Glycine riboswitch aptamer: a 99-nucleotide RNA sequence from Streptomyces hoynatensis. For this family Rfam cites "In Vivo Behavior of the Tandem Glycine Riboswitch in Bacillus subtilis" (Babina et al., MBio, 2017). The match comes from Rfam's covariance-model search (66 bits).
Nucleotides: 099
Base pairs, nucleotide, nucleotide: 006094007093008092009091010090011089012088013087020042021041022040023039044079045078046077047075048074051073052072053071057067058066
Number, partner (000 for none) and nucleotide at each position: 001000c002000g003000a004000a005000c006094u007093c008092g009091u010090g011089c012088g013087g014000g015000a016000g017000a018000g019000u020042c021041c022040u023039g024000g025000c026000g027000u028000c029000c030000c031000a032000c033000g034000g035000a036000c037000g038000g039023c040022a041021g042020g043000c044079g045078c046077c047075g048074a049000a050000g051073g052072a053071g054000c055000a056000a057067c058066u059000c060000c061000u062000c063000c064000c065000c066058g067057g068000a069000a070000u071053c072052u073051c074048u075047c076000a077046g078045g079044c080000c081000c082000c083000c084000g085000u086000a087013c088012c089011g090010u091009g092008c093007g094006a095000g096000c097000g098000a099000a